[Rfam]
RNA sequence: UUGUACGAGAGUUUGAUCCUGGCUCAGGACGAACGCUGGCGGCACGCCUAACACAUGCAAGUCGAGCGCGAAAGGCACUUCGGUGCCGAGUAGAGCGGCGCACGGGUGAGUAACGCGUGGCCAACCCGCCCCCGGGACCGGGACAACCCCCCGAAAGGGGGGCUAAUACCGGAUGACACCCAGGCCGCAGGGCCGGGGUUGAAAGCUCCGGCGCCCGGGGAGGGGGCCGCGUCCCAUCAGCUGGCCGGUGAGGUGAAGGCUCACCGGGGCGACGACGGGUAGCGGGUCUGAGAGGACGGUCCGCCACACUGGCACUGAGACACGGGCCAGACUCCUGCGGGAGGCAGCAGUGGGGAAUCUUGCGCAAUGGGCGCAAGCCUGACGCAGCGAUGCCGCGUGGGUGAAGAAGGCCCUCGGGUCGUAAAGCCCUUUUGGCGGGGAGGAUGAUGACGUCACCCGCCGAAUAAGCGCCGGCUAACUACGUGCCAGCAGCCGCGGUAACACGUAGGGCGCGAGCGUUGUCCGGAAUCACUG
Numbered sequence: 001u002u003g004u005a006c007g008a009g010a011g012u013u014u015g016a017u018c019c020u021g022g023c024u025c026a027g028g029a030c031g032a033a034c035g036c037u038g039g040c041g042g043c044a045c046g047c048c049u050a051a052c053a054c055a056u057g058c059a060a061g062u063c064g065a066g067c068g069c070g071a072a073a074g075g076c077a078c079u080u081c082g083g084u085g086c087c088g089a090g091u092a093g094a095g096c097g098g099c100g101c102a103c104g105g106g107u108g109a110g111u112a113a114c115g116c117g118u119g120g121c122c123a124a125c126c127c128g129c130c131c132c133c134g135g136g137a138c139c140g141g142g143a144c145a146a147c148c149c150c151c152c153g154a155a156a157g158g159g160g161g162g163c164u165a166a167u168a169c170c171g172g173a174u175g176a177c178a179c180c181c182a183g184g185c186c187g188c189a190g191g192g193c194c195g196g197g198g199u200u201g202a203a204a205g206c207u208c209c210g211g212c213g214c215c216c217g218g219g220g221a222g223g224g225g226g227c228c229g230c231g232u233c234c235c236a237u238c239a240g241c242u243g244g245c246c247g248g249u250g251a252g253g254u255g256a257a258g259g260c261u262c263a264c265c266g267g268g269g270c271g272a273c274g275a276c277g278g279g280u281a282g283c284g285g286g287u288c289u290g291a292g293a294g295g296a297c298g299g300u301c302c303g304c305c306a307c308a309c310u311g312g313c314a315c316u317g318a319g320a321c322a323c324g325g326g327c328c329a330g331a332c333u334c335c336u337g338c339g340g341g342a343g344g345c346a347g348c349a350g351u352g353g354g355g356a357a358u359c360u361u362g363c364g365c366a367a368u369g370g371g372c373g374c375a376a377g378c379c380u381g382a383c384g385c386a387g388c389g390a391u392g393c394c395g396c397g398u399g400g401g402u403g404a405a406g407a408a409g410g411c412c413c414u415c416g417g418g419u420c421g422u423a424a425a426g427c428c429c430u431u432u433u434g435g436c437g438g439g440g441a442g443g444a445u446g447a448u449g450a451c452g453u454c455a456c457c458c459g460c461c462g463a464a465u466a467a468g469c470g471c472c473g474g475c476u477a478a479c480u481a482c483g484u485g486c487c488a489g490c491a492g493c494c495g496c497g498g499u500a501a502c503a504c505g506u507a508g509g510g511c512g513c514g515a516g517c518g519u520u521g522u523c524c525g526g527a528a529u530c531a532c533u534g
Stems, first nucleotide, its partner, number of pairs: 009025005027524004032520006039396006045389002047354001052352003056349003061099003066096002070091001074087005106307003115232008125224002130220007138172004147162006178199004183194004205212002233279003240270003245267008282304004286297004309330005332343004360386001362385003368381005399429004409420004434461006443451001468513005479508005489496002
The family of this 534-nucleotide part of an RNA from uncultured bacterium HF0200_14D13 is "Bacterial small subunit ribosomal RNA". The base pairs follow the family's consensus structure, which is taken from published work. The literature on the family includes a 2001 paper in Science by Yusupov et al., "Crystal structure of the ribosome at 5.5 A resolution".